[Rfam]
A member of the RNA family "U4atac minor spliceosomal RNA" from Danionella cerebrum, 135 nucleotides long. The literature on the family includes a 2005 paper in RNA by Lorkovic et al., "Evolutionary conservation of minor U12-type spliceosome between plants and humans". Taxonomically the source falls in Danionella (Eukaryota, Eumetazoa, Teleostomi, Neopterygii). The family is grouped with related families in Rfam's "U4 clan". It scores 82 bits against the family's covariance model. The family's RNA type in Rfam is spliceosomal small nuclear RNA.
RNA sequence: UCUAUCCUUGUCUCGGGGUGGUUUGGGCUGCUCAAUGAACGUAUAGUGAGAGUAUCCCUGCUAACACCAGACACCAACACAUCCAGCACCACCUGAAUCUUGCAAGAUACAGGCUAUGGUGCAAUUUUUGGAAAC
Numbered sequence: 001u002c003u004a005u006c007c008u009u010g011u012c013u014c015g016g017g018g019u020g021g022u023u024u025g026g027g028c029u030g031c032u033c034a035a036u037g038a039a040c041g042u043a044u045a046g047u048g049a050g051a052g053u054a055u056c057c058c059u060g061c062u063a064a065c066a067c068c069a070g071a072c073a074c075c076a077a078c079a080c081a082u083c084c085a086g087c088a089c090c091a092c093c094u095g096a097a098u099c100u101u102g103c104a105a106g107a108u109a110c111a112g113g114c115u116a117u118g119g120u121g122c123a124a125u126u127u128u129u130g131g132a133a134a135c
Stems, first nucleotide, its partner, number of pairs: 006018004021061002027056001029054005039047002086122006092113004097108004